The family of this 126-nucleotide RNA sequence from Astyanax mexicanus is "Small nucleolar RNA SNORD22". The literature on the family includes a 1996 paper in Nature by Tycowski et al., "A mammalian gene with introns instead of exons generating stable RNA products". The match comes from Rfam's covariance-model search (92 bits).

[Rfam]
RNA sequence: UCUGAAUGAUGAAACUCGCACACGUCUUACGCCCUGUGUUAACACCAGAACCUGAGAAGGUGAACCCACUGGGGUUGCCAGGGCAACAAGGGGAUGGUCUGUUGGGGUACCAACUGUCUGACAGGC
Numbered sequence: 001u002c003u004g005a006a007u008g009a010u011g012a013a014a015c016u017c018g019c020a021c022a023c024g025u026c027u028u029a030c031g032c033c034c035u036g037u038g039u040u041a042a043c044a045c046c047a048g049a050a051c052c053u054g055a056g057a058a059g060g061u062g063a064a065c066c067c068a069c070u071g072g073g074g075u076u077g078c079c080a081g082g083g084c085a086a087c088a089a090g091g092g093g094a095u096g097g098u099c100u101g102u103u104g105g106g107g108u109a110c111c112a113a114c115u116g117u118c119u120g121a122c123a124g125g126c
Stems, first nucleotide, its partner, number of pairs: 001125004
Lineage of the source: Eukaryota > Bilateria > Deuterostomia > Teleostomi > Astyanax.